[Rfam]
RNA: Bacterial RNase P class A
Organism: Candidatus Syntrophosphaera thermopropionivorans
RNA sequence: CGGGAAAAUGAGAUGUCCACUGCUACUGAAAAGUAGGGGAGGAAAGUCCGGACACCAAAGGGCAGGAUACUUCCUAACAGGAAGCUGCAGUAAUGCAGAGCGAGCUCCACAGAAAUAAACCGCCUGAAAUAGUUAUUUUAUAAAUAUCUAUUUCAGGUAAGGGUGAAAUGGUGGUGUAAGAGACCACCGGAAAUCCUGGUGACAGGAUUUGCCAGGAAAGCCUUAUCCGGUGCAAUGCCAAAUAGGGAAGCCAAGAAGUGUUGCCCGCACGAUUAUGGCUUCCGGGUAGGCAGCUAAAGUCCAUUCGUGAGAAUGGAUGUAGAGGAAUGGACAUCAACCUCCUGAUAGAAGGAGGUACAGAAUCCGGCUUAUUAUUUUCCCGUGAG
Numbered sequence: 001c002g003g004g005a006a007a008a009u010g011a012g013a014u015g016u017c018c019a020c021u022g023c024u025a026c027u028g029a030a031a032a033g034u035a036g037g038g039g040a041g042g043a044a045a046g047u048c049c050g051g052a053c054a055c056c057a058a059a060g061g062g063c064a065g066g067a068u069a070c071u072u073c074c075u076a077a078c079a080g081g082a083a084g085c086u087g088c089a090g091u092a093a094u095g096c097a098g099a100g101c102g103a104g105c106u107c108c109a110c111a112g113a114a115a116u117a118a119a120c121c122g123c124c125u126g127a128a129a130u131a132g133u134u135a136u137u138u139u140a141u142a143a144a145u146a147u148c149u150a151u152u153u154c155a156g157g158u159a160a161g162g163g164u165g166a167a168a169u170g171g172u173g174g175u176g177u178a179a180g181a182g183a184c185c186a187c188c189g190g191a192a193a194u195c196c197u198g199g200u201g202a203c204a205g206g207a208u209u210u211g212c213c214a215g216g217a218a219a220g221c222c223u224u225a226u227c228c229g230g231u232g233c234a235a236u237g238c239c240a241a242a243u244a245g246g247g248a249a250g251c252c253a254a255g256a257a258g259u260g261u262u263g264c265c266c267g268c269a270c271g272a273u274u275a276u277g278g279c280u281u282c283c284g285g286g287u288a289g290g291c292a293g294c295u296a297a298a299g300u301c302c303a304u305u306c307g308u309g310a311g312a313a314u315g316g317a318u319g320u321a322g323a324g325g326a327a328u329g330g331a332c333a334u335c336a337a338c339c340u341c342c343u344g345a346u347a348g349a350a351g352g353a354g355g356u357a358c359a360g361a362a363u364c365c366g367g368c369u370u371a372u373u374a375u376u377u378u379c380c381c382g383u384g385a386g
Base pairs, nucleotide, nucleotide: 001382002381003380004379005378006377007376008375009374010373011372012335013334014333015332016331017330018329020039021038023036024035025034026033027032044370045369046368048367049366050365051364052363053232054231055230056229060266061265062264063263065228066227067226068225069224070084071083072082073081074080085098086097087096088095089094099223100222104221105220106217107216108215120162121161122158123157124156125155126154127153128152129151130150131149132148170188171187172186173185174184175183190212191210192209193208194207195206196205197204198203236292237291238290239289246283247282248281249280250279251278258270259269260268261267299318300317301316302315303314304313305312306311